RNA: Plastid-psbA-3 3UTR RNA
RNA sequence: AAGGGAGCAAUACUGCACUUUUGAUGAAACAAGAAAUUGGUUAUUGCUCCUUUAUUU
Number, nucleotide and partner (000 for none) at each position: 001a053002a052003g051004g050005g049006a048007g047008c046009a045010a044011u043012a042013c040014u039015g000016c000017a000018c000019u034020u033021u032022u031023g030024a000025u000026g000027a000028a000029a000030c023031a022032a021033g020034a019035a000036a000037u000038u000039g014040g013041u000042u012043a011044u010045u009046g008047c007048u006049c005050c004051u003052u002053u001054a000055u000056u000057u000